[Rfam]
RNA sequence: CUUGCCGAGAGGCGCUGCAACGGGUCCAGCGGAUCCGCCACGCUCGGCAAAGGAGAAGUGACGCAAGGGCGCCUCCUGAGA
Numbered sequence: 001c002u003u004g005c006c007g008a009g010a011g012g013c014g015c016u017g018c019a020a021c022g023g024g025u026c027c028a029g030c031g032g033a034u035c036c037g038c039c040a041c042g043c044u045c046g047g048c049a050a051a052g053g054a055g056a057a058g059u060g061a062c063g064c065a066a067g068g069g070c071g072c073c074u075c076c077u078g079a080g081a
Base pairs, nucleotide, nucleotide: 002050003049004048005047006046007045008044021037022036023035024034025033026032
RNA: SAH (S-adenosyl-L-homocysteine) riboswitch aptamer
Organism: Actinoplanes utahensis